[Rfam]
RNA sequence: GCAUUUUACUUCGCUCGUCCCACUUUACCCGUGAGUGUGCUUGACGAUGAACGGCGAAGGGAGA
Number, nucleotide and partner (000 for none) at each position: 001g000002c060003a000004u000005u058006u057007u056008a000009c054010u000011u000012c000013g000014c000015u047016c046017g045018u044019c043020c000021c037022a036023c035024u034025u033026u000027a000028c000029c000030c000031g000032u000033g025034a024035g023036u022037g021038u000039g000040c000041u000042u000043g019044a018045c017046g016047a015048u000049g000050a000051a000052c000053g000054g009055c000056g007057a006058a005059g000060g002061g000062a000063g000064a000
RNA: Trypanosomatid snoRNA TB8Cs2H1